Shown here is a 96-nucleotide RNA from Gossypium aridum, a member of the family "Plastid-rps12 3UTR RNA". By type it is a cis-regulatory element. It scores 82 bits against the family's covariance model.

[Rfam]
RNA sequence: GAUUUCGAUUGGCCCAAAUCCAAUCUUGGAAAUUAAGAUGAGAGAAAAUUUCUCAUUGGUAGCAAAUGCUUAUCCAUUAAGUGGGGAAAAUCCUAU
Numbered sequence: 001g002a003u004u005u006c007g008a009u010u011g012g013c014c015c016a017a018a019u020c021c022a023a024u025c026u027u028g029g030a031a032a033u034u035a036a037g038a039u040g041a042g043a044g045a046a047a048a049u050u051u052c053u054c055a056u057u058g059g060u061a062g063c064a065a066a067u068g069c070u071u072a073u074c075c076a077u078u079a080a081g082u083g084g085g086g087a088a089a090a091u092c093c094u095a096u
Stems, first nucleotide, its partner, number of pairs: 009023004051086004055077002058074005
Taxonomically the source falls in Gossypium (Eukaryota, Malvales, Malvaceae, Malvoideae).